The family of this 35-nucleotide RNA is "DUF805b RNA".
[Rfam]
RNA sequence: AUGGACGAUGCCGAAAAUCCAGAAAAGAGUAGGCA
Numbered sequence: 001a002u003g004g005a006c007g008a009u010g011c012c013g014a015a016a017a018u019c020c021a022g023a024a025a026a027g028a029g030u031a032g033g034c035a
Base pairs, nucleotide, nucleotide: 002021003020004019005018010034011033012032